[Rfam]
RNA sequence: AUGAAGCAGCAGGAAAAUUCCUAAAUAUAUUCAAUUUGUAUAAUAAGGAAGCCGAUGAAGCAAUUUAAAAUCGCCAAAUUUUAAAGAAACUUUCAGGCAAACCGACCUGCUGUUGAUG
Numbered sequence: 001a002u003g004a005a006g007c008a009g010c011a012g013g014a015a016a017a018u019u020c021c022u023a024a025a026u027a028u029a030u031u032c033a034a035u036u037u038g039u040a041u042a043a044u045a046a047g048g049a050a051g052c053c054g055a056u057g058a059a060g061c062a063a064u065u066u067a068a069a070a071u072c073g074c075c076a077a078a079u080u081u082u083a084a085a086g087a088a089a090c091u092u093u094c095a096g097g098c099a100a101a102c103c104g105a106c107c108u109g110c111u112g113u114u115g116a117u118g
Stems, first nucleotide, its partner, number of pairs: 006113008019049004051098003054094002058092003064085008

Shown here is a 118-nucleotide RNA sequence from Clostridium sp. MD294, a member of the family "Glycine riboswitch aptamer". Taxonomically the source falls in Clostridium (Bacteria, Bacillati, Bacillota, Clostridia). Rfam's curators write: This family represents the bacterial glycine riboswitch. Glycine riboswitches usually consist of two metabolite-binding aptamers domains with similar structures in tandem. The aptamers cooperatively bind glycine to regulate the expression of downstream genes. In Bacillus subtilis, this riboswitch is found upstream of the gcvT operon which controls glycine degradation. It scores 45 bits against the family's covariance model.